Background: This 74-nucleotide RNA from Trypanosoma cruzi belongs to the Rfam family "Trypanosomatid snoRNA TB11Cs4H3". It is annotated as an H/ACA-box small nucleolar RNA. A reference for the family is Liang et al. (2005), "A genome-wide analysis of C/D and H/ACA-like small nucleolar RNAs in Trypanosoma brucei reveals a trypanosome-specific pattern of rRNA modification", RNA. Lineage of the source: Eukaryota > Kinetoplastea > Metakinetoplastina > Trypanosomatidae > Schizotrypanum.
[Rfam]
RNA sequence: AGCGCAGCGACCUUUGGGCCGGUGGCGCGCUGUCGGUGCCGCGCGUGGCGCCACUGCCCGGUUGCGCGAGAGUU
Numbered sequence: 001a002g003c004g005c006a007g008c009g010a011c012c013u014u015u016g017g018g019c020c021g022g023u024g025g026c027g028c029g030c031u032g033u034c035g036g037u038g039c040c041g042c043g044c045g046u047g048g049c050g051c052c053a054c055u056g057c058c059c060g061g062u063u064g065c066g067c068g069a070g071a072g073u074u
Stems, first nucleotide, its partner, number of pairs: 002067007017052003